[Rfam]
RNA sequence: UCUGACCAGUGACCAACGGUCAGUCCCCAGCCUCCGGUGCGGCGGGAGUAAUCCCGGGGUGCUAAGCGGAGGUGGUCAAGCCCAAGGGCUCGCGGGCCAUUCGCAAGCUACAGGUGAAGGGGAAG
Numbered sequence: 001u002c003u004g005a006c007c008a009g010u011g012a013c014c015a016a017c018g019g020u021c022a023g024u025c026c027c028c029a030g031c032c033u034c035c036g037g038u039g040c041g042g043c044g045g046g047a048g049u050a051a052u053c054c055c056g057g058g059g060u061g062c063u064a065a066g067c068g069g070a071g072g073u074g075g076u077c078a079a080g081c082c083c084a085a086g087g088g089c090u091c092g093c094g095g096g097c098c099a100u101u102c103g104c105a106a107g108c109u110a111c112a113g114g115u116g117a118a119g120g121g122g123a124a125g
Stems, first nucleotide, its partner, number of pairs: 002023006031072005036063005043056005079090004100118005